[Rfam]
RNA sequence: UUUGGGAAAUGAUGUUAAUUUCAAUUUCAGAGGCUCAAUAAUUUUUGUGCUUUGCUGAUAUUUUGCACGUCAGUCUGAUCCCAAA
Numbered sequence: 001u002u003u004g005g006g007a008a009a010u011g012a013u014g015u016u017a018a019u020u021u022c023a024a025u026u027u028c029a030g031a032g033g034c035u036c037a038a039u040a041a042u043u044u045u046u047g048u049g050c051u052u053u054g055c056u057g058a059u060a061u062u063u064u065g066c067a068c069g070u071c072a073g074u075c076u077g078a079u080c081c082c083a084a085a
Stems, first nucleotide, its partner, number of pairs: 001085007
Shown here is an 85-nucleotide RNA sequence from Kingdonia uniflora, a member of the family "Small nucleolar RNA Z122". The base pairs follow the family's consensus structure, which was predicted with PFOLD. The match comes from Rfam's covariance-model search (65 bits). Rfam classes the family as a C/D-box small nucleolar RNA.